RNA: ryfA RNA
Organism: Erwinia sp. Leaf53
RNA sequence: GCGGACCUUUUCGCCGCCUUAGCAAGCGGGCACCGGAUUCAGGAAGGGAUAUCCAAUGGCCGUUAACGCAAGUGCAUCUCAGCACUUGCAUUCACGGUUUCAUCUCCGGUGGUGGCACCGUGAAGCGGUCUGUUGCAAGGACCGCGCAAUGAAACGAUACCUGCGUAUUGUUCUCGUUGUCUCUGCCGCGCUGCUGUUAGCCGGAACCGGGGGCUGGAGCAUCUCCAAUAACUCGAUUUCAGUGAUCAUCAACAUGGCAGGCAAGUAAGCCGGUGGCCGCCCGGCAACGGGCGGCUCACUU
Numbered sequence: 001g002c003g004g005a006c007c008u009u010u011u012c013g014c015c016g017c018c019u020u021a022g023c024a025a026g027c028g029g030g031c032a033c034c035g036g037a038u039u040c041a042g043g044a045a046g047g048g049a050u051a052u053c054c055a056a057u058g059g060c061c062g063u064u065a066a067c068g069c070a071a072g073u074g075c076a077u078c079u080c081a082g083c084a085c086u087u088g089c090a091u092u093c094a095c096g097g098u099u100u101c102a103u104c105u106c107c108g109g110u111g112g113u114g115g116c117a118c119c120g121u122g123a124a125g126c127g128g129u130c131u132g133u134u135g136c137a138a139g140g141a142c143c144g145c146g147c148a149a150u151g152a153a154a155c156g157a158u159a160c161c162u163g164c165g166u167a168u169u170g171u172u173c174u175c176g177u178u179g180u181c182u183c184u185g186c187c188g189c190g191c192u193g194c195u196g197u198u199a200g201c202c203g204g205a206a207c208c209g210g211g212g213g214c215u216g217g218a219g220c221a222u223c224u225c226c227a228a229u230a231a232c233u234c235g236a237u238u239u240c241a242g243u244g245a246u247c248a249u250c251a252a253c254a255u256g257g258c259a260g261g262c263a264a265g266u267a268a269g270c271c272g273g274u275g276g277c278c279g280c281c282c283g284g285c286a287a288c289g290g291g292c293g294g295c296u297c298a299c300u301u
Base pairs, nucleotide, nucleotide: 007047008046009045010044011043012042014029015028016027017026031036059187061185069088070087071086072085073084074083075082091124092123093122094121095120096119097118098117101114102113103112104111125145126144127143128142129141130140131139146180147179148178149177150176151175152174154171155170156169157168158167159166160165188266189265192263193262194261195260216226217225218224219223242253243252273299274298275296276295277294278293279292280291281290282289283288